[Rfam]
RNA sequence: GCAAUAGAUGAGGCAUAUGAGCGGAUGCGGUGACGCCCUCUGAAAGGGGGUGGAGCCUAUGACAGUAUACCAAGCAUUAACAUUGAUGACUAGUUUUUCAGUGCUAAUACUGAUGCUGUCAGAUAGAAAGAAAUGAUCCGCUUCAUAUGCCAUCGCACUGGCUGAAGCGGAUCGGGUAGAAACUAUUCGACUGUGAUGCACUGCAUCCGCUCUUUUCGCGGAUAUUGCCAUUCCGUCAGUGUUCAUGCACUGGCG
Dot-bracket structure: (((((..(((.((((((((((..(((....(.(..((((.....))))..).).......(((((((.......((..........)).........((((........)))))))))))...............)))...)))))))).........(((.............................))).......)).)))((((.......))))..))))).....(((((((((....)))))))))
RNA: BsrG